[Rfam]
Shown here is a 125-nucleotide RNA from Naja naja, a member of the family "Small nucleolar RNA SNORA28". The base pairs follow the family's consensus structure, which was predicted with RNAfold. Rfam classes the family as an H/ACA-box small nucleolar RNA.

RNA sequence: AGGCAACACUCUGUGGUAGAUAACUCAGUUGUCUAUCUCAAUUUAAGCUUGCAAUACUAAACAUAGCCUGACCUAUUCCAGUGGUCUUUAAAAAUGAGGCCAUCUGUUAUACAGACUGUAACAAU
Numbered sequence: 001a002g003g004c005a006a007c008a009c010u011c012u013g014u015g016g017u018a019g020a021u022a023a024c025u026c027a028g029u030u031g032u033c034u035a036u037c038u039c040a041a042u043u044u045a046a047g048c049u050u051g052c053a054a055u056a057c058u059a060a061a062c063a064u065a066g067c068c069u070g071a072c073c074u075a076u077u078c079c080a081g082u083g084g085u086c087u088u089u090a091a092a093a094a095u096g097a098g099g100c101c102a103u104c105u106g107u108u109a110u111a112c113a114g115a116c117u118g119u120a121a122c123a124a125u
Stems, first nucleotide, its partner, number of pairs: 009047002012040002015037001017035006064118003068114003074111003079106003086099004
Source information: The literature on the family includes a 2001 paper in EMBO J by Huttenhofer et al., "RNomics: an experimental approach that identifies 201 candidates for novel, small, non-messenger RNAs in mouse".